[Rfam]
The record is a 121-nucleotide RNA sequence from Chrysochloris asiatica, which matches "Small nucleolar RNA SNORA61" in Rfam. Taxonomically the source falls in Chrysochloris (Eukaryota, Bilateria, Gnathostomata, Eutheria). From the family's description: ACA61 is a member of the H/ACA class of snoRNA that guide the sites of modification of uridines to pseudouridines. It is annotated as an H/ACA-box small nucleolar RNA. Rfam links the family to the GO terms RNA processing and nucleolus.
RNA sequence: AUCUUCCAGUUUCCUUUCCCAUUGGCUCUAAACACUGGUCUGGGUGGUCAUAAAAGGAGGGAAAGCAACAUUGAAACUGACCUCAGUGCUUCGGUGGCACAGAAAUUAGUUUCAAACGAGA
Numbered sequence: 001a002u003c004u005u006c007c008a009g010u011u012u013c014c015u016u017u018c019c020c021a022u023u024g025g026c027u028c029u030a031a032a033c034a035c036u037g038g039u040c041u042g043g044g045u046g047g048u049c050a051u052a053a054a055a056g057g058a059g060g061g062a063a064a065g066c067a068a069c070a071u072u073g074a075a076a077c078u079g080a081c082c083u084c085a086g087u088g089c090u091u092c093g094g095u096g097g098c099a100c101a102g103a104a105a106u107u108a109g110u111u112u113c114a115a116a117c118g119a120g121a
Stems, first nucleotide, its partner, number of pairs: 003060005019047005025040001027038002077109004083103001